[Rfam]
RNA: Bacterial large subunit ribosomal RNA, nucleotides 1387 to 1859
Organism: Actinoalloteichus hoggarensis
RNA sequence: GAAAGCAGAGUGAGAAACUCUGCCGCCGUAUGACCAAGGGUUCCUGGGCCAGGUUAUUCCGCCCAGGGUAAGUCGGGACCUAAGGCGAGGCCGACAGGCGUAGUCGAUGGACAACGGGUUGAUAUUCCCGUACCCGUGUGGAUGCGCCCAUGGCGAGGCUGGUGAUACUAACCGCCCGGAUCAUUGUUGCCCUUUCGGGGGUGGUGGUGGUCUGCGCGGGACCUGAGCUGGUAGUAGUCAAGUGAUGGGGUGACGCAGGAGGGUAGCUCCGCCAGUGAGUGGUAGUACUGGUGUAAGCGUGUAGCCUGCUCUGAUAGGUAAAUCCGUUGGGGCGUGAAGGGUGAGACGUGAUGCGUAGCCGAAUGAGGCGAAGUAGAGUGAUCCCAUGCUGCCGAGAAAAGCCUCUAGCGAGUAUCUUCGCGGCCCGUACCCCAAACCGACACAGGUGGUCAGGUAGAGUAUACCGAGGCGAU
Number, nucleotide and partner (000 for none) at each position: 001g000002a000003a000004a000005g023006c022007a021008g020009a019010g018011u000012g000013a000014g000015a000016a000017a000018c010019u009020c008021u007022g006023c005024c471025g470026c469027c468028g000029u000030a000031u000032g451033a450034c449035c448036a000037a000038g431039g430040g000041u000042u000043c067044c066045u065046g064047g063048g062049c000050c000051a000052g060053g059054u000055u000056a000057u000058u000059c053060c052061g000062c048063c047064c046065a045066g044067g043068g000069u000070a000071a000072g000073u000074c427075g426076g425077g424078a000079c110080c109081u000082a000083a000084g105085g104086c103087g000088a101089g000090g099091c098092c097093g000094a000095c000096a000097g092098g091099c090100g000101u088102a000103g086104u085105c084106g000107a000108u000109g080110g079111a000112c000113a000114a131115c130116g129117g128118g127119u000120u000121g000122a000123u000124a000125u000126u000127c118128c117129c116130g115131u114132a000133c000134c423135c422136g421137u420138g419139u000140g417141g416142a415143u414144g413145c000146g000147c000148c000149c000150a000151u000152g000153g000154c000155g000156a000157g000158g000159c000160u000161g000162g000163u000164g000165a000166u000167a000168c000169u000170a000171a000172c000173c000174g000175c000176c000177c000178g000179g000180a000181u000182c000183a000184u000185u000186g000187u000188u000189g000190c000191c000192c000193u000194u000195u000196c000197g000198g000199g000200g000201g000202u000203g000204g000205u000206g000207g000208u000209g000210g000211u000212c000213u000214g000215c000216g000217c000218g000219g000220g000221a000222c000223c000224u000225g000226a000227g000228c000229u000230g000231g000232u000233a000234g000235u000236a000237g000238u000239c000240a000241a000242g409243u408244g000245a000246u000247g405248g404249g403250g402251u401252g000253a000254c000255g392256c391257a390258g389259g000260a000261g385262g384263g383264u000265a000266g379267c378268u377269c376270c000271g292272c291273c290274a289275g288276u287277g000278a000279g000280u000281g000282g000283u000284a000285g000286u000287a276288c275289u274290g273291g272292u271293g354294u353295a000296a000297g349298c348299g347300u346301g000302u000303a000304g342305c341306c340307u000308g000309c332310u331311c330312u329313g328314a327315u326316a000317g325318g324319u000320a000321a000322a000323u000324c318325c317326g315327u314328u313329g312330g311331g310332g309333c000334g000335u000336g000337a000338a000339g000340g306341g305342u304343g000344a000345g000346a300347c299348g298349u297350g000351a000352u000353g294354c293355g000356u371357a000358g369359c368360c367361g000362a000363a000364u000365g000366a000367g360368g359369c358370g000371a356372a000373g000374u000375a000376g269377a268378g267379u266380g000381a000382u000383c263384c262385c261386a000387u000388g000389c258390u257391g256392c255393c000394g000395a000396g000397a000398a000399a000400a000401g251402c250403c249404u248405c247406u000407a000408g243409c242410g000411a000412g000413u144414a143415u142416c141417u140418u000419c138420g137421c136422g135423g134424c077425c076426c075427g074428u000429a000430c039431c038432c000433c000434a000435a000436a000437c446438c445439g000440a000441c000442a000443c000444a000445g438446g437447u000448g035449g034450u033451c032452a000453g465454g464455u463456a462457g000458a000459g000460u000461a000462u456463a455464c454465c453466g000467a000468g027469g026470c025471g024472a000473u000